Record summary:
Rfam assigns this 117-nucleotide RNA from Felis catus to the family "Small nucleolar RNA SNORA26".
[Rfam]
RNA sequence: GUGCCCUUUUAAGGUUGACGCAGUGCCUUAAGAGGCUAACACAGGGUAAAGUAAGUCUCCAUAAAACCCAGGGAUGAGACUAAAACUCCUCUCUGGAUCCUGUCUGGAGUCACAGCG
Number, nucleotide and partner (000 for none) at each position: 001g000002u048003g047004c046005c045006c044007u043008u000009u000010u000011a000012a000013g000014g040015u039016u038017g037018a000019c035020g000021c032022a000023g000024u000025g000026c000027c000028u000029u000030a000031a000032g021033a000034g000035g019036c000037u017038a016039a015040c014041a000042c000043a007044g006045g005046g004047u003048a002049a000050a000051g000052u000053a000054a000055g111056u000057c109058u108059c107060c106061a105062u000063a000064a000065a000066a000067c000068c096069c095070a094071g093072g092073g091074a090075u000076g088077a087078g086079a000080c000081u000082a000083a000084a000085a000086c078087u077088c076089c000090u074091c073092u072093c071094u070095g069096g068097a000098u000099c000100c000101u000102g000103u000104c000105u061106g060107g059108a058109g057110u000111c055112a000113c000114a000115g000116c000117g000
Gene Ontology terms of the family: RNA processing and nucleolus.
The snoRNA HBI-6 belong to the H/ACA family of snoRNAs, guiding the pseudouridylation of position U4522 if the 28S rRNA. HBI-6 is the human orthologue of mouse MBI-6 snoRNA.
The match comes from Rfam's covariance-model search (124 bits).
The family is grouped with related families in Rfam's "SNORA27 clan".
The family's consensus secondary structure was predicted with RNAalifold.
It is annotated as an H/ACA-box small nucleolar RNA.